[Rfam]
RNA sequence: GCCGGGUCUAGGUUAGCUCCCGAACGGGCGGCCCCUUCACCGCCCUGAACCGGCACCCACUUGAAGG
Numbered sequence: 001g002c003c004g005g006g007u008c009u010a011g012g013u014u015a016g017c018u019c020c021c022g023a024a025c026g027g028g029c030g031g032c033c034c035c036u037u038c039a040c041c042g043c044c045c046u047g048a049a050c051c052g053g054c055a056c057c058c059a060c061u062u063g064a065a066g067g
Base pairs, nucleotide, nucleotide: 001054002053003052004051005050007048008047011021012020027044028043029042030041031040034067035066036065037064038063
Dot-bracket structure: (((((.((..((.......)).....(((((..[[[[[.)))))..)).)))))........]]]]]